[Rfam]
RNA sequence: GUGGGUAAGGGUAAUACCGAACUCCCACUUUAUGACCGAAUAAACUAAACUCAGAGAGUUAAGGUAAUGGCACAGAGGUUGUACUCACUUUGACGAUGACUAACCAUCAUUGAGGAGAACUUUCGUAACUGAAAGGUGUUAGGUACAAGGGAGAAAAAAUCUGAGCUUGAAGUUGUAGGUAAUCGUUAAUCCUACAUCCC
Numbered sequence: 001g002u003g004g005g006u007a008a009g010g011g012u013a014a015u016a017c018c019g020a021a022c023u024c025c026c027a028c029u030u031u032a033u034g035a036c037c038g039a040a041u042a043a044a045c046u047a048a049a050c051u052c053a054g055a056g057a058g059u060u061a062a063g064g065u066a067a068u069g070g071c072a073c074a075g076a077g078g079u080u081g082u083a084c085u086c087a088c089u090u091u092g093a094c095g096a097u098g099a100c101u102a103a104c105c106a107u108c109a110u111u112g113a114g115g116a117g118a119a120c121u122u123u124c125g126u127a128a129c130u131g132a133a134a135g136g137u138g139u140u141a142g143g144u145a146c147a148a149g150g151g152a153g154a155a156a157a158a159a160u161c162u163g164a165g166c167u168u169g170a171a172g173u174u175g176u177a178g179g180u181a182a183u184c185g186u187u188a189a190u191c192c193u194a195c196a197u198c199c200c
Stems, first nucleotide, its partner, number of pairs: 001028005035065002049059004068141006075086003079128004088117002090113004120135005146169004162185002165183001175195005
Shown here is a 200-nucleotide RNA, a member of the family "manA RNA". manA RNA has been located in 5'UTR regions of genes of mannose or fructose metabolism. Has been proposed as a cis-regulatory element and as a riboswitch candidate for his complex secondary structure.